The family of this 95-nucleotide RNA sequence from Paenibacillus sedimenti is "c-di-GMP-I riboswitch aptamer". Rfam links the family to the GO term cyclic-di-GMP binding. From the family's description: GEMM was predicted in a large-scale screen for bacterial structured RNA regulatory elements. The source organism's lineage runs through Bacteria, Bacillota, Caryophanales, Paenibacillaceae and Paenibacillus. It scores 63 bits against the family's covariance model.

[Rfam]
RNA sequence: UUCCGACAAUGGCAAAACUGGCGAAAGUCAGCGACGCAAAGCUAUAGGGGCGUAACGCGGUGUUAGUGAAUGCCGCAAGCCAGCCAGCUACCGAA
Number, nucleotide and partner (000 for none) at each position: 001u000002u000003c000004c000005g000006a000007c000008a000009a000010u000011g000012g037013c036014a000015a000016a000017a000018c031019u030020g029021g028022c027023g000024a000025a000026a000027g022028u021029c020030a019031g018032c000033g000034a000035c000036g013037c012038a000039a000040a089041g088042c087043u086044a000045u000046a000047g085048g084049g081050g080051c079052g000053u000054a000055a000056c075057g074058c000059g000060g073061u072062g071063u070064u069065a000066g000067u000068g000069a064070a063071u062072g061073c060074c057075g056076c000077a000078a000079g051080c050081c049082a000083g000084c048085c047086a043087g042088c041089u040090a000091c000092c000093g000094a000095a000